[Rfam]
RNA sequence: AUCAAUGGAUGAGGAGCAAAGCUCAUAAGUACCCCGCUGCAACGGCUGCAGACCGGUAGCGGGUGGAAAGGGUGUUUUGCCGAAACGGGAUCCGGUUCUCAGGCUGUUUCCCGUUGGACUGCAUAUGAACAAUAUGCAGGCUGUCAUUAUUCUCGUAAUAAUGGAGUGCUUCCACUUGU
Numbered sequence: 001a002u003c004a005a006u007g008g009a010u011g012a013g014g015a016g017c018a019a020a021g022c023u024c025a026u027a028a029g030u031a032c033c034c035c036g037c038u039g040c041a042a043c044g045g046c047u048g049c050a051g052a053c054c055g056g057u058a059g060c061g062g063g064u065g066g067a068a069a070g071g072g073u074g075u076u077u078u079g080c081c082g083a084a085a086c087g088g089g090a091u092c093c094g095g096u097u098c099u100c101a102g103g104c105u106g107u108u109u110c111c112c113g114u115u116g117g118a119c120u121g122c123a124u125a126u127g128a129a130c131a132a133u134a135u136g137c138a139g140g141c142u143g144u145c146a147u148u149a150u151u152c153u154c155g156u157a158a159u160a161a162u163g164g165a166g167u168g169c170u171u172c173c174a175c176u177u178g179u
Stems, first nucleotide, its partner, number of pairs: 006174004011169001016080007024072001033063007084115007093106003116142002119139008144164007
A member of the RNA family "Lysine riboswitch aptamer" from Bhargavaea cecembensis, 179 nucleotides long.
The base pairs follow the family's consensus structure, which is taken from published work.
Lineage of the source: Bacteria > Bacillati > Bacilli > Caryophanales > Bhargavaea cecembensis.
The match comes from Rfam's covariance-model search (96 bits).